A member of the RNA family "c-di-AMP riboswitch aptamer (ydaO/yuaA leader)" from Streptomyces sp. ISL-12, 168 nucleotides long.
Lineage of the source: Bacteria > Bacillati > Actinomycetota > Streptomycetaceae > Streptomyces.
Rfam's curators write: This family represents a conserved RNA structure found upstream of the ydaO and yuaA genes in Bacillus subtilis and related genes in other bacteria.
RNA sequence: GUCGCGCAAGCGCCGAAGGCAGGAGCGGGGGACCCAAGGUAAGUCGCCGCACCGGGCAGUUGAGCCGGAGCGGCUAGGGGUGGAGCCGAGUCCCGUGAGGGACCCGGCCGGGCAACUCAACCGGCCCGAACCCGACAGCUCACCUCGCAGGCGUCGGUGAGGGGAUCU
Numbered sequence: 001g002u003c004g005c006g007c008a009a010g011c012g013c014c015g016a017a018g019g020c021a022g023g024a025g026c027g028g029g030g031g032a033c034c035c036a037a038g039g040u041a042a043g044u045c046g047c048c049g050c051a052c053c054g055g056g057c058a059g060u061u062g063a064g065c066c067g068g069a070g071c072g073g074c075u076a077g078g079g080g081u082g083g084a085g086c087c088g089a090g091u092c093c094c095g096u097g098a099g100g101g102a103c104c105c106g107g108c109c110g111g112g113c114a115a116c117u118c119a120a121c122c123g124g125c126c127c128g129a130a131c132c133c134g135a136c137a138g139c140u141c142a143c144c145u146c147g148c149a150g151g152c153g154u155c156g157g158u159g160a161g162g163g164g165a166u167c168u
Stems, first nucleotide, its partner, number of pairs: 011153004025148006035077001078133003086107003110127004